[Rfam]
RNA sequence: AACUUUCCAGUUCUGCGUUCAUGUCCCCUGCAGCUUGACUUUAGGGGAAAUCGAGCAACAAGGGACAUGAAUGCAGAACUGGAAAGAU
Numbered sequence: 001a002a003c004u005u006u007c008c009a010g011u012u013c014u015g016c017g018u019u020c021a022u023g024u025c026c027c028c029u030g031c032a033g034c035u036u037g038a039c040u041u042u043a044g045g046g047g048a049a050a051u052c053g054a055g056c057a058a059c060a061a062g063g064g065a066c067a068u069g070a071a072u073g074c075a076g077a078a079c080u081g082g083a084a085a086g087a088u
Base pairs, nucleotide, nucleotide: 003086004085005084006083007082008081015074016073017072018071025064026063027062029057030056031055033052035050036049039046040045
The record is an 88-nucleotide sequence from Medicago truncatula, which matches "MIR2086 microRNA precursor family" in Rfam.
Taxonomically the source falls in Medicago (Eukaryota, eudicotyledons, Gunneridae, fabids).
Rfam's curators put it in the seed alignment.